[Rfam]
RNA: PhotoRC-II RNA
Organism: Nerrivikvirus srim2
RNA sequence: UUUCAUGACACCGACACCCCAAACCGAGACUUAUAGGGUGUAUAAAUCACGUCUCUCAUAUCCCUACCUGAGGGUGGUAGGGAAAUAGUAACUCCA
Numbered sequence: 001u002u003u004c005a006u007g008a009c010a011c012c013g014a015c016a017c018c019c020c021a022a023a024c025c026g027a028g029a030c031u032u033a034u035a036g037g038g039u040g041u042a043u044a045a046a047u048c049a050c051g052u053c054u055c056u057c058a059u060a061u062c063c064c065u066a067c068c069u070g071a072g073g074g075u076g077g078u079a080g081g082g083a084a085a086u087a088g089u090a091a092c093u094c095c096a
Stems, first nucleotide, its partner, number of pairs: 015040005021034001026055005062082007